[Rfam]
Notes
Shown here is a 92-nucleotide RNA sequence from Papilio machaon, a member of the family "mir-2788 microRNA precursor family". It scores 100 bits against the family's covariance model. Gene Ontology terms of the family: RISC complex and miRNA-mediated post-transcriptional gene silencing.
RNA sequence: UGUAAGUGUUGCCGUAUAGCUGGGGUUUCAAAGCGGCAUGUGCCUUCCUUUAUGCAAUGCCCUUGGAAAUCCCAAACGUGCUGGCGACGACA
Numbered sequence: 001u002g003u004a005a006g007u008g009u010u011g012c013c014g015u016a017u018a019g020c021u022g023g024g025g026u027u028u029c030a031a032a033g034c035g036g037c038a039u040g041u042g043c044c045u046u047c048c049u050u051u052a053u054g055c056a057a058u059g060c061c062c063u064u065g066g067a068a069a070u071c072c073c074a075a076a077c078g079u080g081c082u083g084g085c086g087a088c089g090a091c092a
Base pairs, nucleotide, nucleotide: 008088009087010086011085012084013083014081015080016079021074022073023072024071025070026069027068028067029066031064032063033062035061036060037059038058039057041056042055043054
Rfam 15.1 lists 89 matches to the family in 88 species.